[Rfam]
RNA sequence: AAAGGGAAAGCCGAAAACCUUUACAAAAGAGUAGGUG
Number, nucleotide and partner (000 for none) at each position: 001a000002a021003a020004g019005g018006g000007a000008a000009a000010g036011c035012c034013g000014a000015a000016a000017a000018c005019c004020u003021u002022u000023a000024c000025a000026a000027a000028a000029g000030a000031g000032u000033a000034g012035g011036u010037g000
This 37-nucleotide RNA sequence belongs to the Rfam family "DUF805b RNA". It is one of the family's seed sequences. Clan: DUF805 clan.